The family of this 202-nucleotide RNA from Lachancea fermentati is "Small nucleolar RNA snR31".
The base pairs follow the family's consensus structure, which was predicted with WAR.
The family is grouped with related families in Rfam's "SNORA8 clan".
Lineage of the source: Eukaryota > Dikarya > Ascomycota > Saccharomycetales > Lachancea.
The family's RNA type in Rfam is H/ACA-box small nucleolar RNA.
Its family is annotated with RNA processing and nucleolus in the Gene Ontology.

RNA sequence: UAUCAAAAAAACAACCAUGAGUUCCACCGGCGUCACUGAGGCGUAUACCUUGCUCCAGUUUGAUGCUUAGUUUAAGGUGGAUAUUUUACGACUCGUGGAAGAUUAACGGUUUAAGAUGUAUCUCCAGCUAUUGAACGAGCGAAAGCCUUUUUCUUUCUCUCACCGAAGUUUGAUAUAGUUGGUCAUGAUUCUUGCAACAUGA
Number, nucleotide and partner (000 for none) at each position: 001u000002a000003u000004c000005a000006a000007a000008a000009a000010a000011a000012c000013a000014a000015c098016c097017a096018u095019g094020a093021g092022u091023u000024c000025c000026a072027c070028c000029g068030g067031c065032g064033u063034c062035a059036c058037u057038g056039a000040g000041g000042c000043g000044u000045a000046u000047a000048c000049c000050u000051u000052g000053c000054u000055c000056c038057a037058g036059u035060u000061u000062g034063a033064u032065g031066c000067u030068u029069a000070g027071u000072u026073u000074a000075a086076g085077g084078u000079g000080g000081a000082u000083a000084u077085u076086u075087u000088a000089c000090g000091a022092c021093u020094c019095g018096u017097g016098g015099a000100a000101g000102a000103u000104u000105a000106a000107c000108g000109g000110u000111u000112u000113a193114a000115g191116a190117u000118g000119u000120a000121u000122c000123u000124c182125c181126a180127g179128c178129u177130a176131u175132u000133g000134a000135a000136c000137g161138a160139g159140c000141g157142a156143a155144a154145g153146c000147c000148u000149u000150u000151u000152u000153c145154u144155u143156u142157c141158u000159c139160u138161c137162a000163c000164c000165g000166a000167a000168g000169u000170u000171u000172g000173a000174u000175a131176u130177a129178g128179u127180u126181g125182g124183u000184c000185a000186u000187g000188a000189u000190u116191c115192u000193u113194g000195c000196a000197a000198c000199a000200u000201g000202a000